Rfam assigns this 97-nucleotide sequence from Pseudanabaena cinerea to the family "TPP riboswitch aptamer (THI element)".
The family's consensus secondary structure is taken from published work.
About the family: Vitamin B(1) in its active form thiamin pyrophosphate (TPP) is an essential coenzyme that is synthesised by coupling of pyrimidine and thiazole moieties in bacteria. The previously detected thiamin-regulatory element, thi box was extended, resulting in a new, highly conserved RNA secondary structure, the THI element, which is widely distributed in eubacteria and also occurs in some archaea. Analysis of operon structures identified a large number of new candidate thiamin-regulated genes, mostly transporters, in various prokaryotic organisms. The THI element is a riboswitch that directly binds to TPP to regulate gene expression through a variety of mechanisms in archaea, bacteria and eukaryotes. through a variety of mechanisms in archaea, bacteria and eukaryotes. Tandem TPP riboswitches have been reported where both TPP riboswitches respond independently to TPP. The structure of TPP riboswitch has been reported for Escherichia coli and Arabidopsis thaliana.
The organism belongs to Pseudanabaena cinerea, within Bacteria.
[Rfam]
RNA sequence: UUGCAAUGCUAGGAGUGUCUGGAAAUACCAGACUGAGAGCAAAUCCUUAGAACCUGAACCGACUGACAUCGGCGUAGGAAAGCACAUUAUUUGAGGA
Numbered sequence: 001u002u003g004c005a006a007u008g009c010u011a012g013g014a015g016u017g018u019c020u021g022g023a024a025a026u027a028c029c030a031g032a033c034u035g036a037g038a039g040c041a042a043a044u045c046c047u048u049a050g051a052a053c054c055u056g057a058a059c060c061g062a063c064u065g066a067c068a069u070c071g072g073c074g075u076a077g078g079a080a081a082g083c084a085c086a087u088u089a090u091u092u093g094a095g096g097a
Stems, first nucleotide, its partner, number of pairs: 007084004011047004016041001017033005053078004059072004